[Rfam]
RNA sequence: GACGCCAGUGCAGGAGAGUCCGGGUCCGCCCGGCGCCGAAGGAGCAACCCCCCGGAAACUCUCAGGCAAAAGGACUGCACGCCGGCG
Numbered sequence: 001g002a003c004g005c006c007a008g009u010g011c012a013g014g015a016g017a018g019u020c021c022g023g024g025u026c027c028g029c030c031c032g033g034c035g036c037c038g039a040a041g042g043a044g045c046a047a048c049c050c051c052c053c054g055g056a057a058a059c060u061c062u063c064a065g066g067c068a069a070a071a072g073g074a075c076u077g078c079a080c081g082c083c084g085g086c087g
Stems, first nucleotide, its partner, number of pairs: 008080006020033004035067003038063002042061003048055002
RNA: Glycine riboswitch aptamer